The family of this 84-nucleotide RNA sequence from Collinsella sp. An307 is "aspS RNA".
The match comes from Rfam's covariance-model search (77 bits).
The base pairs follow the family's consensus structure, which is taken from published work.

RNA sequence: GCUGGGACGCGCUGUCUACGCGCUCCGGCACAUCUGUACGCAGCCGCCCGUACCGGCACGGGGCGGCACAGAUCAUAAGGAGGA
Numbered sequence: 001g002c003u004g005g006g007a008c009g010c011g012c013u014g015u016c017u018a019c020g021c022g023c024u025c026c027g028g029c030a031c032a033u034c035u036g037u038a039c040g041c042a043g044c045c046g047c048c049c050g051u052a053c054c055g056g057c058a059c060g061g062g063g064c065g066g067c068a069c070a071g072a073u074c075a076u077a078a079g080g081a082g083g084a
Stems, first nucleotide, its partner, number of pairs: 001029006008022004032073006043067007